[Rfam]
RNA sequence: GGCUUAUUUUGCCCAGGCGGAGCUCGACCGCCCACUGAAGCGAUGAUCGCCUUUAUCGAAGAGCAUCGUGAGGUCUACGGUGUCGAGCCGAUCGCGCGUGUCCUGCCGAUCGCCCCG
Numbered sequence: 001g002g003c004u005u006a007u008u009u010u011g012c013c014c015a016g017g018c019g020g021a022g023c024u025c026g027a028c029c030g031c032c033c034a035c036u037g038a039a040g041c042g043a044u045g046a047u048c049g050c051c052u053u054u055a056u057c058g059a060a061g062a063g064c065a066u067c068g069u070g071a072g073g074u075c076u077a078c079g080g081u082g083u084c085g086a087g088c089c090g091a092u093c094g095c096g097c098g099u100g101u102c103c104u105g106c107c108g109a110u111c112g113c114c115c116c117g
Stems, first nucleotide, its partner, number of pairs: 016032005078117003082113001089112002092109003098103001
RNA: ALIL pseudoknot
Organism: Endobacter medicaginis